[Rfam]
Nucleotides: 097
Stems, first nucleotide, its partner, number of pairs: 009022004052087004056078002059075006
Number, partner (000 for none) and nucleotide at each position: 001000g002000g003000u004000u005000u006000u007000c008000a009022u010021u011020g012019g013000u014000g015000a016000a017000a018000a019012u020011c021010a022009a023000u024000c025000a026000u027000u028000u029000u030000c031000a032000a033000u034000u035000u036000g037000a038000a039000a040000g041000a042000a043000g044000a045000a046000g047000c048000a049000a050000u051000u052087c053086u054085c055084c056078a057077u058000u059075g060074g061073u062072a063071g064070c065000a066000a067000a068000a069000g070064g071063u072062u073061a074060u075059c076000c077057a078056u079000u080000a081000a082000g083000c084055g085054g086053a087052g088000g089000a090000g091000a092000u093000a094000g095000c096000a097000u